[Rfam]
The family of this 97-nucleotide RNA from Momordica charantia is "Small nucleolar RNA Z161/Z228". Its Rfam clan is "SNORD35 clan". The literature on the family includes a 2003 paper in Nucleic Acids Res by Chen et al., "The high diversity of snoRNAs in plants: identification and comparative study of 120 snoRNA genes from Oryza sativa". Rfam classes the family as a C/D-box small nucleolar RNA.

RNA sequence: GAACCAGAUGACGAUUUUGGAUUCAAAUUCUCACGACGGUCGUCUGAGACGCAUUACGUGUCGAUAUUGAUGCAAUGAUCCAUUUGUUCUGAUGGUU
Numbered sequence: 001g002a003a004c005c006a007g008a009u010g011a012c013g014a015u016u017u018u019g020g021a022u023u024c025a026a027a028u029u030c031u032c033a034c035g036a037c038g039g040u041c042g043u044c045u046g047a048g049a050c051g052c053a054u055u056a057c058g059u060g061u062c063g064a065u066a067u068u069g070a071u072g073c074a075a076u077g078a079u080c081c082a083u084u085u086g087u088u089c090u091g092a093u094g095g096u097u
Base pairs, nucleotide, nucleotide: 001097002096004094050060051059052058